[Rfam]
RNA sequence: ACAGUGAGGUGGGUCGGGUCCUUGUAAAACAAACCUGCUAGUGCCGACGGACGAGUUCGUCGACGCGACAUCGUCAAAUUGCGGGAACCUCCUAACGCUUCACCUACCAAGUGCUGCUACGCGUGUGCGCGAAAGCGCCAGCACGGCCGAGCUAAUCGCCCUGGGUAUGGUAACAACGGUGAAGAUAUAUCAUGGACGAUCCGCAGCCAAGUCCUACGUCGAAGUUCAUUCGAUAUGGAACGGGUUCAGAGACUAGAUGGCGGUGGGUCUGGCGCCUCGCGCGCCUGGCUUAAGAUAUAGUCCAAUCCGGUCAGCGAAAGCGCCGG
Number, nucleotide and partner (000 for none) at each position: 001a000002c000003a000004g000005u000006g000007a000008g000009g000010u000011g000012g000013g000014u000015c000016g000017g000018g000019u000020c000021c000022u000023u000024g000025u000026a000027a000028a000029a000030c000031a000032a000033a000034c000035c000036u000037g000038c000039u000040a000041g000042u000043g000044c000045c000046g000047a000048c000049g000050g000051a000052c000053g000054a000055g000056u000057u000058c000059g000060u000061c000062g000063a000064c000065g000066c000067g000068a000069c265070a264071u263072c262073g261074u000075c259076a258077a000078a000079u000080u205081g204082c203083g202084g201085g200086a000087a000088c000089c000090u196091c195092c194093u000094a000095a000096c000097g000098c000099u000100u000101c000102a000103c000104c000105u000106a000107c000108c000109a000110a000111g000112u000113g000114c000115u000116g000117c000118u000119a000120c000121g000122c000123g000124u000125g000126u000127g000128c000129g000130c000131g000132a000133a000134a000135g000136c000137g000138c000139c000140a000141g000142c000143a000144c000145g000146g000147c000148c000149g000150a000151g000152c000153u000154a000155a000156u000157c000158g000159c000160c000161c000162u000163g000164g000165g000166u000167a000168u000169g000170g000171u000172a000173a000174c000175a000176a000177c000178g000179g000180u000181g000182a000183a000184g000185a000186u000187a000188u000189a000190u000191c000192a000193u000194g092195g091196a090197c000198g000199a000200u085201c084202c083203g082204c081205a080206g245207c244208c000209a000210a000211g000212u239213c238214c237215u000216a000217c000218g000219u233220c232221g231222a230223a229224g000225u000226u000227c000228a000229u223230u222231c221232g220233a219234u000235a000236u000237g214238g213239a212240a000241c000242g000243g000244g207245u206246u000247c000248a000249g303250a000251g302252a301253c300254u299255a298256g000257a000258u076259g075260g000261c073262g072263g071264u070265g069266g000267g289268u288269c287270u000271g285272g284273c283274g282275c281276c000277u000278c000279g000280c000281g275282c274283g273284c272285c271286u000287g269288g268289c267290u000291u000292a000293a000294g000295a000296u000297a000298u255299a254300g253301u252302c251303c249304a000305a000306u000307c000308c000309g324310g323311u322312c000313a000314g321315c320316g000317a000318a000319a000320g315321c314322g311323c310324c309325g000326g000
Group I catalytic intron: a 326-nucleotide RNA from Plasmodiophora brassicae. The family's consensus secondary structure is taken from published work. Group I catalytic introns are large self-splicing ribozymes. They catalyse their own excision from mRNA, tRNA and rRNA precursors in a wide range of organisms. The core secondary structure consists of 9 paired regions (P1-P9). These fold to essentially two domains - the P4-P6 domain (formed from the stacking of P5, P4, P6 and P6a helices) and the P3-P9 domain (formed from the P8, P3, P7 and P9 helices).